[Rfam]
RNA sequence: CAGCGCAUUGGUUGCUGUAAGCCAAGGGCGGUAGCAUA
Numbered sequence: 001c002a003g004c005g006c007a008u009u010g011g012u013u014g015c016u017g018u019a020a021g022c023c024a025a026g027g028g029c030g031g032u033a034g035c036a037u038a
Stems, first nucleotide, its partner, number of pairs: 008025005
The family of this 38-nucleotide sequence from Yersinia intermedia is "JUMPstart RNA". NCBI's taxonomy places the organism under Bacteria, Pseudomonadati, Pseudomonadota, Yersinia, Yersinia intermedia. The family's RNA type in Rfam is cis-regulatory element.